[Rfam]
RNA sequence: ACACGAAAAAGGCAAACCAUCCGAAAGGGUGGGACGCAAAGCCACUGGCCUAAACCCCGAAUCAUCGGGAUAUGGUAGCAGGGUUGCCGGU
Number, nucleotide and partner (000 for none) at each position: 001a000002c000003a000004c000005g000006a000007a000008a000009a000010a000011g000012g037013c036014a000015a000016a000017c032018c031019a030020u029021c028022c027023g000024a000025a000026a000027g022028g021029g020030u019031g018032g017033g000034a000035c000036g013037c012038a000039a000040a085041g084042c083043c082044a000045c081046u080047g079048g076049c075050c074051u000052a000053a000054a000055c000056c069057c068058c067059g066060a065061a000062u000063c000064a000065u060066c059067g058068g057069g056070a000071u000072a000073u000074g050075g049076u048077a000078g000079c047080a046081g045082g043083g042084u041085u040086g000087c000088c000089g000090g000091u000